[Rfam]
RNA sequence: GUUGAUAAAGCCACAGCCGUCGCGAGACGGUGUCGGAAAGCCACGGGUCUCCAUAAAGGAGACAGCCGGGUUGCCUGCU
Numbered sequence: 001g002u003u004g005a006u007a008a009a010g011c012c013a014c015a016g017c018c019g020u021c022g023c024g025a026g027a028c029g030g031u032g033u034c035g036g037a038a039a040g041c042c043a044c045g046g047g048u049c050u051c052c053a054u055a056a057a058g059g060a061g062a063c064a065g066c067c068g069g070g071u072u073g074c075c076u077g078c079u
Base pairs, nucleotide, nucleotide: 011036012035016031017030018029019028020027021026039072040071041070042069044068045067046066047063048062049061050060051059052058